[Rfam]
RNA sequence: UCGAAUUCAGUGGGAGAGACCGGACGGGCCCGCCCGUCCGGCGCCGAAGGAGCAACCGCCCCGGAAACUCUCAGGCAAUAGGGACCGCUGAAGGACG
Dot-bracket structure: .....((((((((......((((((((......)))))))).(((((..(((...((.....))...))))).)))........)))))))).....
Notes
A member of the RNA family "Glycine riboswitch aptamer" from Minwuia thermotolerans, 97 nucleotides long.